[Rfam]
RNA sequence: GCCCCGCCAACCCAGUGUUCAGACUACCUGUUCAGGGGGCUCUGAAUGUGUACAGUAGUCUGCACAUUGGUUAGGCUGGGCU
Number, nucleotide and partner (000 for none) at each position: 001g000002c000003c000004c000005c000006g000007c000008c000009a000010a000011c000012c070013c069014a068015g067016u066017g065018u064019u000020c062021a061022g060023a059024c058025u057026a056027c000028c055029u054030g053031u052032u000033c050034a049035g000036g000037g000038g000039g000040c000041u000042c000043u000044g000045a000046a000047u000048g000049u034050g033051u000052a031053c030054a029055g028056u026057a025058g024059u023060c022061u021062g020063c000064a018065c017066a016067u015068u014069g013070g012071u000072u000073a000074g000075g000076c000077u000078g000079g000080g000081c000082u000
This 82-nucleotide RNA from Eptesicus fuscus belongs to the Rfam family "mir-199 microRNA precursor family".
Its family is annotated with RISC complex and miRNA-mediated post-transcriptional gene silencing in the Gene Ontology.
It is one of the family's seed sequences.
For this family Rfam cites "miRNPs: a novel class of ribonucleoproteins containing numerous microRNAs" (Mourelatos et al., Genes Dev, 2002).
About the family: This family consists of the microRNA (miRNA) precursor mir-199 which appears to be specific to humans. Animal miRNAs are transcribed as ~70nt precursors and subsequently processed by the Dicer enzyme to give a ~22nt product. In this case the mature sequence comes from the 3' arm of the precursor. The extents of the hairpin precursors are not generally known and are estimated based on hairpin prediction. The products are thought to have regulatory roles through complementarity to mRNA. The involvement of Dicer in miRNA processing suggests a relationship with the phenomenon of RNA interference. miRNAs are numbered based on the sequence of the mature RNA.